[Rfam]
RNA sequence: UUUCCCAUUUAUUUGCUACUCUAGUCUCUCAGUGACAGGAGCAGUUAUAUGUAUGGGAUAAAACAAUAUUGGGUCAUUGUAAAUUAAGAUAAAUGUUUUGUCUCUUCUGUAUGGUUUAGACAUUG
Numbered sequence: 001u002u003u004c005c006c007a008u009u010u011a012u013u014u015g016c017u018a019c020u021c022u023a024g025u026c027u028c029u030c031a032g033u034g035a036c037a038g039g040a041g042c043a044g045u046u047a048u049a050u051g052u053a054u055g056g057g058a059u060a061a062a063a064c065a066a067u068a069u070u071g072g073g074u075c076a077u078u079g080u081a082a083a084u085u086a087a088g089a090u091a092a093a094u095g096u097u098u099u100g101u102c103u104c105u106u107c108u109g110u111a112u113g114g115u116u117u118a119g120a121c122a123u124u125g
Stems, first nucleotide, its partner, number of pairs: 003058006015045003019041003022037001025035002069119008078111004087103007
Shown here is a 125-nucleotide sequence from Nannospalax galili, a member of the family "Small nucleolar RNA SNORA20". The source organism's lineage runs through Eukaryota, Opisthokonta, Deuterostomia, Theria and Nannospalax. From the family's description: ACA20 is a member of the H/ACA class of snoRNA that guide the sites of modification of uridines to pseudouridines. The match comes from Rfam's covariance-model search (112 bits).